[Rfam]
RNA sequence: UGGGUCGGUGAGACGGUCGCGUCGCGGCGCGCACCCCGUGCGCGUCGCGCCGAGGAACGUCCGGGCUGCACAGAGGAGGACGGUGGGUAACGCCCACCCGGGGUGACCCGCGAGCAAGUGCAACAGAGAGCAGACCGACCGCCCCGGCUCGCCGGGGUGGCACGGGUGAAAGGGUGGUGUAAGAGACCACCGGCGUCCGUGGCGACACGGGCGGCCAGGUAAACCUCGUCCGCAGCAAGGCCGUACAGCAGACGACGACGCUCCUCGCCGAGUCUGCGGGUUGGCCGCUGGAGGGUACUGGCAACAGUGCCCCGAGAGAGAUGACCGUCACCGGGCCGCUUCGGCGGCGCGGGACAGAACCCGGCGUAUGAUCCGGCCCAUUCC
Numbered sequence: 001u002g003g004g005u006c007g008g009u010g011a012g013a014c015g016g017u018c019g020c021g022u023c024g025c026g027g028c029g030c031g032c033a034c035c036c037c038g039u040g041c042g043c044g045u046c047g048c049g050c051c052g053a054g055g056a057a058c059g060u061c062c063g064g065g066c067u068g069c070a071c072a073g074a075g076g077a078g079g080a081c082g083g084u085g086g087g088u089a090a091c092g093c094c095c096a097c098c099c100g101g102g103g104u105g106a107c108c109c110g111c112g113a114g115c116a117a118g119u120g121c122a123a124c125a126g127a128g129a130g131c132a133g134a135c136c137g138a139c140c141g142c143c144c145c146g147g148c149u150c151g152c153c154g155g156g157g158u159g160g161c162a163c164g165g166g167u168g169a170a171a172g173g174g175u176g177g178u179g180u181a182a183g184a185g186a187c188c189a190c191c192g193g194c195g196u197c198c199g200u201g202g203c204g205a206c207a208c209g210g211g212c213g214g215c216c217a218g219g220u221a222a223a224c225c226u227c228g229u230c231c232g233c234a235g236c237a238a239g240g241c242c243g244u245a246c247a248g249c250a251g252a253c254g255a256c257g258a259c260g261c262u263c264c265u266c267g268c269c270g271a272g273u274c275u276g277c278g279g280g281u282u283g284g285c286c287g288c289u290g291g292a293g294g295g296u297a298c299u300g301g302c303a304a305c306a307g308u309g310c311c312c313c314g315a316g317a318g319a320g321a322u323g324a325c326c327g328u329c330a331c332c333g334g335g336c337c338g339c340u341u342c343g344g345c346g347g348c349g350c351g352g353g354a355c356a357g358a359a360c361c362c363g364g365c366g367u368a369u370g371a372u373c374c375g376g377c378c379c380a381u382u383c384c
Base pairs, nucleotide, nucleotide: 001380002379003378004377005376006375007374008373011369012329013328014327015326016325017324018323020052021051023049024048025047026046027045028044029043030042031041032040057367058366059365061364062363063362064361065360066235067234068233069232073265075263076262078231079230080229081228082227083097084096085095086094087093098112099110100109101108102107113226114225118224119223120220121219135165136164139160140159142157143156144155145154146153147152173191174190175189176188177187178186193215194213195212196211197210198209199208200207201206239286240285241284242283248277249276250275251274252273253272256270257269259267260266293312294311295310296309297308298307299306300305